Shown here is a 75-nucleotide RNA sequence from Microvirga vignae, a member of the family "Makes More Granules Regulator RNA (mmgR)". Its family is annotated with protein binding, response to nitrogen compound and DNA-templated transcription, termination in the Gene Ontology. Lineage of the source: Bacteria > Pseudomonadota > Alphaproteobacteria > Methylobacteriaceae > Microvirga. The base pairs follow the family's consensus structure. The family is grouped with related families in Rfam's "suhB sRNA clan". By type it is a small RNA. Rfam describes the family as follows. SuhB later renamed mmgR (makes more granules regulator) was a putative non-coding RNA found multiple times in the Agrobacterium tumefaciens genome and related alpha-proteobacteria. A search with the family's covariance model found it, with a score of 73 bits.

RNA sequence: UGCUGCUGCCCUUCUUGGGCGUUUCCUCCCUAAACUUCGGGCCGCUGGUGACAGUGGCCUUUUUUCUUAGGUGGC
Numbered sequence: 001u002g003c004u005g006c007u008g009c010c011c012u013u014c015u016u017g018g019g020c021g022u023u024u025c026c027u028c029c030c031u032a033a034a035c036u037u038c039g040g041g042c043c044g045c046u047g048g049u050g051a052c053a054g055u056g057g058c059c060u061u062u063u064u065u066c067u068u069a070g071g072u073g074g075c
Stems, first nucleotide, its partner, number of pairs: 008020004039060009